[Rfam]
RNA sequence: GGUCACGAGUUCCAGCGUCAAGCCCCGGCUCGCUGGACGGCAUCCCGCCCGCUGCGGGUGCCCCGGGUGACGACCCGCCCCGUCGCGCUGUGCACGGGGAACGGCGGAUC
Numbered sequence: 001g002g003u004c005a006c007g008a009g010u011u012c013c014a015g016c017g018u019c020a021a022g023c024c025c026c027g028g029c030u031c032g033c034u035g036g037a038c039g040g041c042a043u044c045c046c047g048c049c050c051g052c053u054g055c056g057g058g059u060g061c062c063c064c065g066g067g068u069g070a071c072g073a074c075c076c077g078c079c080c081c082g083u084c085g086c087g088c089u090g091u092g093c094a095c096g097g098g099g100a101a102c103g104g105c106g107g108a109u110c
Stems, first nucleotide, its partner, number of pairs: 001075004009038001011037006021030002039062003044058003048054001078099006